[Rfam]
RNA sequence: AGGGAAGACAGGUUGGCCCCUACUGAAGACCAAUCUUAAUGUUAAAAAGGACUUAUCAUCAUG
Numbered sequence: 001a002g003g004g005a006a007g008a009c010a011g012g013u014u015g016g017c018c019c020c021u022a023c024u025g026a027a028g029a030c031c032a033a034u035c036u037u038a039a040u041g042u043u044a045a046a047a048a049g050g051a052c053u054u055a056u057c058a059u060c061a062u063g
Stems, first nucleotide, its partner, number of pairs: 001021004010036007